This 65-nucleotide sequence from Coffea canephora belongs to the Rfam family "Plastid-psbA-4 3UTR RNA". Its Rfam clan is "Plastid-psbA 3UTR RNA clan". By type it is a cis-regulatory element. From the family's description: Plastid psbA-4 is a non-coding RNA (ncRNA) present in plastids. It was identified in inverted repeat sequences in the 3 prime untranslate region (3UTR) of photosystem II quinone-binding protein (psbA). It scores 62 bits against the family's covariance model.

RNA sequence: AAAAUAAAGGAGCAAUAAUUUCCUUCUUAUUCUCUUAAGAUAAGAGGGUCUUAUUGCUCCUUUAU
Numbered sequence: 001a002a003a004a005u006a007a008a009g010g011a012g013c014a015a016u017a018a019u020u021u022c023c024u025u026c027u028u029a030u031u032c033u034c035u036u037a038a039g040a041u042a043a044g045a046g047g048g049u050c051u052u053a054u055u056g057c058u059c060c061u062u063u064a065u
Stems, first nucleotide, its partner, number of pairs: 006063012022048001024046008